[Rfam]
RNA sequence: CUAUACUGCGCCGCGUCAUUGGGGAGUAGCCGCCUCGCGCCGCCCGCGCGGGGGUCUGCGUCAACAUACUUGCCUUGCGGCAUGGCGCAGACGGUCCUGGACUUGGCAAGACCUUUGACCGCGCAGCACCCGGUGGGCCGGGGGCGCCGCGCGGUCAUUCGGUCAACCGUCCGGCCCCGGAACC
Number, nucleotide and partner (000 for none) at each position: 001c000002u000003a000004u000005a000006c000007u000008g000009c000010g000011c000012c000013g000014c000015g000016u000017c000018a000019u000020u000021g000022g000023g000024g000025a000026g000027u000028a000029g000030c000031c000032g000033c000034c052035u051036c050037g049038c048039g047040c000041c000042g000043c000044c000045c000046g000047c039048g038049c037050g036051g035052g034053g000054g092055u091056c090057u089058g088059c087060g086061u085062c084063a083064a000065c000066a000067u000068a000069c000070u000071u082072g081073c080074c079075u000076u000077g000078c000079g074080g073081c072082a071083u063084g062085g061086c060087g059088c058089a057090g056091a055092c054093g184094g183095u182096c000097c180098u179099g178100g000101a000102c000103u000104u000105g000106g000107c000108a000109a000110g000111a000112c000113c000114u000115u000116u000117g000118a000119c000120c000121g000122c000123g000124c000125a000126g000127c000128a000129c000130c000131c000132g000133g000134u000135g000136g000137g000138c000139c000140g000141g000142g000143g000144g000145c000146g000147c000148c000149g000150c000151g000152c000153g000154g000155u000156c000157a000158u000159u000160c000161g000162g000163u000164c000165a000166a000167c000168c000169g000170u000171c000172c000173g000174g000175c000176c000177c000178c099179g098180g097181a000182a095183c094184c093